[Rfam]
RNA sequence: CUGACGAACAGAGGCGACGACCCUCGUUCCGUAACCACGGGCACCUGGAACGAGUCGAGCCAUUGGUGCGACCGGCUUUCGUCCG
Numbered sequence: 001c002u003g004a005c006g007a008a009c010a011g012a013g014g015c016g017a018c019g020a021c022c023c024u025c026g027u028u029c030c031g032u033a034a035c036c037a038c039g040g041g042c043a044c045c046u047g048g049a050a051c052g053a054g055u056c057g058a059g060c061c062a063u064u065g066g067u068g069c070g071a072c073c074g075g076c077u078u079u080c081g082u083c084c085g
Base pairs, nucleotide, nucleotide: 001085003083004082005081006080007079008078010077011076013061014060015059023054024053025052026051027050028049029048039073040072041069042068043067044066045065
A member of the RNA family "c-di-GMP-II-GAG riboswitch aptamer" from Deinococcus peraridilitoris, 85 nucleotides long. On this family, see Weinberg et al., Proc Natl Acad Sci U S A 2017: "Bioinformatic analysis of riboswitch structures uncovers variant classes with altered ligand specificity". Its Rfam clan is "c-di-GMP_II riboswitch clan". It is one of the family's seed sequences.